[Rfam]
RNA sequence: GAGGGCCGAAAAGGCAAGAUGUCGGCAUAGCUGAUAGUUUUAACGGCUGUGUCUCAUCAAGCCACUUUGUUCCUCC
Number, nucleotide and partner (000 for none) at each position: 001g000002a000003g000004g000005g071006c000007c069008g068009a067010a066011a000012a000013g063014g062015c061016a000017a000018g058019a057020u056021g055022u000023c000024g053025g052026c051027a050028u049029a048030g047031c046032u000033g000034a000035u000036a000037g000038u000039u000040u000041u000042a000043a000044c000045g000046g031047c030048u029049g028050u027051g026052u025053c024054u000055c021056a020057u019058c018059a000060a000061g015062c014063c013064a000065c000066u010067u009068u008069g007070u000071u005072c000073c000074u000075c000076c000
Source information: mir-31 microRNA precursor family: a 76-nucleotide sequence from Phaedon cochleariae. The family's consensus secondary structure was predicted with RNAalifold. Its family is annotated with gene silencing by miRNA and RISC complex in the Gene Ontology. A reference for the family is Ma et al. (2023), "Structure of pre-miR-31 reveals an active role in Dicer processing", bioRxiv [Preprint].